[Rfam]
Nucleotides: 053
Stems, first nucleotide, its partner, number of pairs: 006047002009044004022036005
Number, partner (000 for none) and nucleotide at each position: 001000a002000g003000a004000c005000c006047a007046g008000c009044c010043c011042g012041g013000g014000c015000c016000c017000c018000u019000c020000u021000g022036g023035c024034a025033g026032c027000g028000a029000c030000a031000a032026g033025c034024u035023g036022u037000g038000a039000u040000g041012u042011c043010g044009g045000a046007c047006u048000g049000g050000a051000a052000a053000a
Shown here is a 53-nucleotide sequence from Afipia carboxidovorans, a member of the family "terC RNA". The family's consensus secondary structure is taken from published work. It is one of the family's seed sequences. Rfam classes the family as a cis-regulatory element.